[Rfam]
RNA sequence: AGAUCUCCAUAGCCACGGGAUGGCUUGGUGGAGAAGUCAGCCGAAGUCGUAGUAGCCAGCCACCUGAUAGGCUGGUGAAGGAC
Numbered sequence: 001a002g003a004u005c006u007c008c009a010u011a012g013c014c015a016c017g018g019g020a021u022g023g024c025u026u027g028g029u030g031g032a033g034a035a036g037u038c039a040g041c042c043g044a045a046g047u048c049g050u051a052g053u054a055g056c057c058a059g060c061c062a063c064c065u066g067a068u069a070g071g072c073u074g075g076u077g078a079a080g081g082a083c
Stems, first nucleotide, its partner, number of pairs: 001025002004023002008019001010017001037044002046083003055076006
Shown here is an 83-nucleotide sequence from Salegentibacter flavus, a member of the family "Group II catalytic intron D1-D4-1". The match comes from Rfam's covariance-model search (46 bits). The pairing is the family consensus, mapped onto this sequence.